The record is a 248-nucleotide sequence from Afifella marina, which matches "permuted transfer-messenger RNA" in Rfam. It is annotated as a non-coding RNA gene. NCBI's taxonomy places the organism under Bacteria, Pseudomonadati, Alphaproteobacteria, Afifellaceae, Afifella marina. Pairs were carried over by alignment from the consensus structure, which is taken from published work. It scores 156 bits against the family's covariance model.

RNA sequence: GGCGAUAAAUGGCCUACGGAAUAAGCCUAUCGGACCCGGGGGCGGUACCCGGCGCCUCCACCAUCAACGGCCCAGGGCAGAGUGCCUGGCAAAGCCGGAUUCCCUGCAAGGGGCCGCUGUUGAUGGGGGCGAAAUAGGAUCGACGAGGGUGUAAAGGUAGAACUUUCGCUCGGUAUGGUACCACCGUUAUCGGACCAAAACUUGUAGUUGCGAAUGACAACUAUGCUGAGGCUCGUCUCGCUGCGUAA
Numbered sequence: 001g002g003c004g005a006u007a008a009a010u011g012g013c014c015u016a017c018g019g020a021a022u023a024a025g026c027c028u029a030u031c032g033g034a035c036c037c038g039g040g041g042g043c044g045g046u047a048c049c050c051g052g053c054g055c056c057u058c059c060a061c062c063a064u065c066a067a068c069g070g071c072c073c074a075g076g077g078c079a080g081a082g083u084g085c086c087u088g089g090c091a092a093a094g095c096c097g098g099a100u101u102c103c104c105u106g107c108a109a110g111g112g113g114c115c116g117c118u119g120u121u122g123a124u125g126g127g128g129g130c131g132a133a134a135u136a137g138g139a140u141c142g143a144c145g146a147g148g149g150u151g152u153a154a155a156g157g158u159a160g161a162a163c164u165u166u167c168g169c170u171c172g173g174u175a176u177g178g179u180a181c182c183a184c185c186g187u188u189a190u191c192g193g194a195c196c197a198a199a200a201c202u203u204g205u206a207g208u209u210g211c212g213a214a215u216g217a218c219a220a221c222u223a224u225g226c227u228g229a230g231g232c233u234c235g236u237c238u239c240g241c242u243g244c245g246u247a248a
Stems, first nucleotide, its partner, number of pairs: 001170005014160004026149003030146003036052005053131007171186004